[Rfam]
RNA sequence: AUACUUACCUGCCAGGAUACAACCAUGAUCAACAAGGUGGUUGUAUAGGCGGUGGCUAUUGGCAUUGCACUCAAGCUGGCGGCUGCUGUCUUGAACAUCCUACGGGGUGUCUCAACUGGAUAAUUUUUUGCUGUUGGGGUGGUUCGUGGUUCGCCGCGAAUUGCCCCUA
Numbered sequence: 001a002u003a004c005u006u007a008c009c010u011g012c013c014a015g016g017a018u019a020c021a022a023c024c025a026u027g028a029u030c031a032a033c034a035a036g037g038u039g040g041u042u043g044u045a046u047a048g049g050c051g052g053u054g055g056c057u058a059u060u061g062g063c064a065u066u067g068c069a070c071u072c073a074a075g076c077u078g079g080c081g082g083c084u085g086c087u088g089u090c091u092u093g094a095a096c097a098u099c100c101u102a103c104g105g106g107g108u109g110u111c112u113c114a115a116c117u118g119g120a121u122a123a124u125u126u127u128u129u130g131c132u133g134u135u136g137g138g139g140u141g142g143u144u145c146g147u148g149g150u151u152c153g154c155c156g157c158g159a160a161u162u163g164c165c166c167c168u169a
Stems, first nucleotide, its partner, number of pairs: 012119004017046010048090004055083003059079005092114003095110003099107002136167004144159001146157004
RNA: U1 spliceosomal RNA